This 57-nucleotide RNA sequence from Ricinus communis belongs to the Rfam family "Plastid-ndhJ 3UTR RNA". Rfam's curators write: Plastid ndhJ is a non-coding RNA (ncRNA) present in plastids. It was identified as a short stem-loop motif in the 3 prime untranslate region (3UTR) of ndhJ gene. Rfam 15.1 lists 869 matches to the family in 155 species. The family's RNA type in Rfam is cis-regulatory element.

RNA sequence: AUAUGAACUUUGUACUGCGCGCAUCCUUUAGAUGAGCUAUAAAAAGUCACAUAAUAU
Numbered sequence: 001a002u003a004u005g006a007a008c009u010u011u012g013u014a015c016u017g018c019g020c021g022c023a024u025c026c027u028u029u030a031g032a033u034g035a036g037c038u039a040u041a042a043a044a045a046g047u048c049a050c051a052u053a054a055u056a057u
Stems, first nucleotide, its partner, number of pairs: 019037002022034004